[Rfam]
RNA sequence: GGCGCUGUGGCCGAGCGGUUAAGGCGACAGAUUAGAAUCGUUACUGAGUCUAAUAUCUGUUUCCCUAUGGGAGCGUGAGUUCAAAUCUCACCGGCGUCG
Numbered sequence: 001g002g003c004g005c006u007g008u009g010g011c012c013g014a015g016c017g018g019u020u021a022a023g024g025c026g027a028c029a030g031a032u033u034a035g036a037a038u039c040g041u042u043a044c045u046g047a048g049u050c051u052a053a054u055a056u057c058u059g060u061u062u063c064c065c066u067a068u069g070g071g072a073g074c075g076u077g078a079g080u081u082c083a084a085a086u087c088u089c090a091c092c093g094g095c096g097u098c099g
Base pairs, nucleotide, nucleotide: 001098002097003096004095005094006093007092010025011024012023027060028059029058030057031056075091076090077089078088079087
The family of this 99-nucleotide RNA from Gelatoporia subvermispora is "tRNA".
Pairs were carried over by alignment from the consensus structure, which is taken from published work.
The family's RNA type in Rfam is transfer RNA.
NCBI's taxonomy places the organism under Eukaryota, Opisthokonta, Fungi, Agaricomycetes, Gelatoporia subvermispora.